Group II catalytic intron D1-D4-2: a 121-nucleotide RNA from Desulfurella amilsii.
The source organism's lineage runs through Bacteria, Campylobacterota, Desulfurellia, Desulfurellaceae and Desulfurella.
Group II introns are found in rRNA, tRNA and mRNA of organelles in fungi, plants and protists, and also in mRNA in bacteria.
A search with the family's covariance model found it, with a score of 96 bits.

[Rfam]
RNA sequence: AAGGGAGAGGCCCCUCGGGAUCGGCUUGCAGGAGCAGGUCUCAAACCGCCACAAGCUGCCUGGAUCAAGAGUCCCGGUGGUGAACGUUCUGGUUAAAAGGCUCCGCUGGAUGGAGUCAGGU
Numbered sequence: 001a002a003g004g005g006a007g008a009g010g011c012c013c014c015u016c017g018g019g020a021u022c023g024g025c026u027u028g029c030a031g032g033a034g035c036a037g038g039u040c041u042c043a044a045a046c047c048g049c050c051a052c053a054a055g056c057u058g059c060c061u062g063g064a065u066c067a068a069g070a071g072u073c074c075c076g077g078u079g080g081u082g083a084a085c086g087u088u089c090u091g092g093u094u095a096a097a098a099g100g101c102u103c104c105g106c107u108g109g110a111u112g113g114a115g116u117c118a119g120g121u
Stems, first nucleotide, its partner, number of pairs: 002015004017042006024035004047120001049092003053088002055081002058078003062074004099117006